[Rfam]
RNA: BsrG
RNA sequence: UAGAGAUACACUAUUAAGGGUGACCAGCAUUCCCUCUAUGAAAGGGGGUGCUGCCCGUGACUGCUUUUCAAGCACUUAUGCUAAUGAUCGCAUUUGCUAGUUUGAUUGUGUCCAUAGUCUCUUUGGCACUAAAAAGUAAUCCACACUUGAGCCGGCAAGCAAGGAGUGGAUUACCGUUUCACUUAUAUGCUGAUCCCUUGAAGGGAAUUCUGCAAGACUGUUAGUGUUAGCAGACCCGCAG
Numbered sequence: 001u002a003g004a005g006a007u008a009c010a011c012u013a014u015u016a017a018g019g020g021u022g023a024c025c026a027g028c029a030u031u032c033c034c035u036c037u038a039u040g041a042a043a044g045g046g047g048g049u050g051c052u053g054c055c056c057g058u059g060a061c062u063g064c065u066u067u068u069c070a071a072g073c074a075c076u077u078a079u080g081c082u083a084a085u086g087a088u089c090g091c092a093u094u095u096g097c098u099a100g101u102u103u104g105a106u107u108g109u110g111u112c113c114a115u116a117g118u119c120u121c122u123u124u125g126g127c128a129c130u131a132a133a134a135a136g137u138a139a140u141c142c143a144c145a146c147u148u149g150a151g152c153c154g155g156c157a158a159g160c161a162a163g164g165a166g167u168g169g170a171u172u173a174c175c176g177u178u179u180c181a182c183u184u185a186u187a188u189g190c191u192g193a194u195c196c197c198u199u200g201a202a203g204g205g206a207a208u209u210c211u212g213c214a215a216g217a218c219u220g221u222u223a224g225u226g227u228u229a230g231c232a233g234a235c236c237c238g239c240a241g
Stems, first nucleotide, its partner, number of pairs: 001212005007192002009189001011151001014150005020144001022141002027051003031047005059119005073086002096111002158178003194206003218241004224235002227232001